[Rfam]
RNA sequence: CCCAGCGGUAGUCAGCUGCGCAGGCCUUCCCGUGCCUGACUCGGUGUUACUCUGCUGGAAGAGGAAGGCGCUGCCGUUCCGGCCUGGCUCGGUAGCCGCUGUUUUAGUAGUUGCUGAUGCUAAGCUAAGGCAGCGUUUUACCCCUCAGAGAGUGGGCUGUGUCCACGCUUUCUGGAGCAGCCCUAGUGUGGGGGGCGAACAAC
Numbered sequence: 001c002c003c004a005g006c007g008g009u010a011g012u013c014a015g016c017u018g019c020g021c022a023g024g025c026c027u028u029c030c031c032g033u034g035c036c037u038g039a040c041u042c043g044g045u046g047u048u049a050c051u052c053u054g055c056u057g058g059a060a061g062a063g064g065a066a067g068g069c070g071c072u073g074c075c076g077u078u079c080c081g082g083c084c085u086g087g088c089u090c091g092g093u094a095g096c097c098g099c100u101g102u103u104u105u106a107g108u109a110g111u112u113g114c115u116g117a118u119g120c121u122a123a124g125c126u127a128a129g130g131c132a133g134c135g136u137u138u139u140a141c142c143c144c145u146c147a148g149a150g151a152g153u154g155g156g157c158u159g160u161g162u163c164c165a166c167g168c169u170u171u172c173u174g175g176a177g178c179a180g181c182c183c184u185a186g187u188g189u190g191g192g193g194g195g196c197g198a199a200c201a202a203c
Stems, first nucleotide, its partner, number of pairs: 002058007011050002015045004020040001021038005068136008082126001084124002089117004094112003098108003138198002141195005154183003158179003162175002
RNA: Small nucleolar RNA SNORA74